[Rfam]
RNA sequence: AAUGAAUGAUGACAAAAUGUUUCGGUCCCAGAUGAUAUAGAAUGAUUCUAUUUAAUCUCUUUCUGACAUU
Numbered sequence: 001a002a003u004g005a006a007u008g009a010u011g012a013c014a015a016a017a018u019g020u021u022u023c024g025g026u027c028c029c030a031g032a033u034g035a036u037a038u039a040g041a042a043u044g045a046u047u048c049u050a051u052u053u054a055a056u057c058u059c060u061u062u063c064u065g066a067c068a069u070u
Base pairs, nucleotide, nucleotide: 001070002069003068004067
About this RNA
The record is a 70-nucleotide sequence from Oxylabes madagascariensis, which matches "Small nucleolar RNA SNORD73" in Rfam. The literature on the family includes a 1998 paper in Gene by Rebane et al., "A novel snoRNA (U73) is encoded within the introns of the human and mouse ribosomal protein S3a genes". It is annotated as a C/D-box small nucleolar RNA. NCBI's taxonomy places the organism under Eukaryota, Eumetazoa, Vertebrata, Sauropsida, Oxylabes.